[Rfam]
RNA sequence: AACCAAAGCAGCCCCUCUUGAUGAUUCCUCUCCUGAGCGGCUCUCCUGAUGAGCAAACUGAGCCUCUAAGAAGUUGACUGAAGGGCUGCUUCCCU
Numbered sequence: 001a002a003c004c005a006a007a008g009c010a011g012c013c014c015c016u017c018u019u020g021a022u023g024a025u026u027c028c029u030c031u032c033c034u035g036a037g038c039g040g041c042u043c044u045c046c047u048g049a050u051g052a053g054c055a056a057a058c059u060g061a062g063c064c065u066c067u068a069a070g071a072a073g074u075u076g077a078c079u080g081a082a083g084g085g086c087u088g089c090u091u092c093c094c095u
Stems, first nucleotide, its partner, number of pairs: 007090007015083001
RNA: Small nucleolar RNA SNORD125